[Rfam]
RNA sequence: GUUGAGAGGAUUGUUGUCUGGCUCGAGGUCAUGAAGAAGAGAAUCACUCGAAUUAAUUUGGAAGAACAAAUUAAGAAAACCCUAGAUGAUUCUCGGACCAGGCUUCAUUCCCCCUAAC
Numbered sequence: 001g002u003u004g005a006g007a008g009g010a011u012u013g014u015u016g017u018c019u020g021g022c023u024c025g026a027g028g029u030c031a032u033g034a035a036g037a038a039g040a041g042a043a044u045c046a047c048u049c050g051a052a053u054u055a056a057u058u059u060g061g062a063a064g065a066a067c068a069a070a071u072u073a074a075g076a077a078a079a080c081c082c083u084a085g086a087u088g089a090u091u092c093u094c095g096g097a098c099c100a101g102g103c104u105u106c107a108u109u110c111c112c113c114c115u116a117a118c
Stems, first nucleotide, its partner, number of pairs: 001118004006113001008111003012107002016103006024095005
A member of the RNA family "mir-166 microRNA precursor family", 118 nucleotides long. The family has 31 seed sequences and 2,599 matches in Rfam 15.1. This family represents the plant microRNA (miRNA) precursor mir-166. Rfam's curators put it in the seed alignment. Gene Ontology terms of the family: miRNA-mediated post-transcriptional gene silencing and RISC complex. On this family, see Reinhart et al., Genes Dev 2002: "MicroRNAs in plants".